A member of the RNA family "U11 spliceosomal RNA" from Basidiobolus meristosporus, 134 nucleotides long. The family is grouped with related families in Rfam's "U1 clan".
[Rfam]
RNA sequence: AAAAAGGGCCAGUGGCGAGUCAAUGCCACGUAGCAUGCAUUGUGCACUACGCUGAAUCGACAUCAAGAGAUUUUGCUGGCAUAAUUUUUUUAAAUUGACGGCCUUCUGGCUUCGCUCUGAGCUAAGGCCGUCUU
Numbered sequence: 001a002a003a004a005a006g007g008g009c010c011a012g013u014g015g016c017g018a019g020u021c022a023a024u025g026c027c028a029c030g031u032a033g034c035a036u037g038c039a040u041u042g043u044g045c046a047c048u049a050c051g052c053u054g055a056a057u058c059g060a061c062a063u064c065a066a067g068a069g070a071u072u073u074u075g076c077u078g079g080c081a082u083a084a085u086u087u088u089u090u091u092a093a094a095u096u097g098a099c100g101g102c103c104u105u106c107u108g109g110c111u112u113c114g115c116u117c118u119g120a121g122c123u124a125a126g127g128c129c130g131u132c133u134u
Stems, first nucleotide, its partner, number of pairs: 008080005013028005029051005038044001052075001054073005097132009108123004